[Rfam]
RNA sequence: AGAUAACCCAGAGUCCCCCGACGGGGGAUAUGAGUAACGGCUGUUUGGCACAGCCCGGAGUCUUCCUGUUCGACCGCGAGAGCGGGUCGUUCAACACGAGAGAGCAGGGAGUCUGCAAACCCUAAUAUCCCAACGCUCGGGAUUCCUCCGCCUUUAGGCGGGGGA
Numbered sequence: 001a002g003a004u005a006a007c008c009c010a011g012a013g014u015c016c017c018c019c020g021a022c023g024g025g026g027g028a029u030a031u032g033a034g035u036a037a038c039g040g041c042u043g044u045u046u047g048g049c050a051c052a053g054c055c056c057g058g059a060g061u062c063u064u065c066c067u068g069u070u071c072g073a074c075c076g077c078g079a080g081a082g083c084g085g086g087u088c089g090u091u092c093a094a095c096a097c098g099a100g101a102g103a104g105c106a107g108g109g110a111g112u113c114u115g116c117a118a119a120c121c122c123u124a125a126u127a128u129c130c131c132a133a134c135g136c137u138c139g140g141g142a143u144u145c146c147u148c149c150g151c152c153u154u155u156a157g158g159c160g161g162g163g164g165a
Stems, first nucleotide, its partner, number of pairs: 004037001007034001009032002013029007039055005059114002062111002065108007084097001086095002128142004133137001144165009